The family of this 76-nucleotide sequence from Parvimonas sp. oral taxon 393 is "dfrA-dnaX RNA".

RNA sequence: ACGCCCAGUGGUAAAAACAUAUUAAUUUCACCAUAAUUACAUUAAAUUAGUUAUUAAAUAGGAAUUAUGGUAUAAU
Numbered sequence: 001a002c003g004c005c006c007a008g009u010g011g012u013a014a015a016a017a018c019a020u021a022u023u024a025a026u027u028u029c030a031c032c033a034u035a036a037u038u039a040c041a042u043u044a045a046a047u048u049a050g051u052u053a054u055u056a057a058a059u060a061g062g063a064a065u066u067a068u069g070g071u072a073u074a075a076u
Stems, first nucleotide, its partner, number of pairs: 030071008
Rfam classes the family as a small RNA.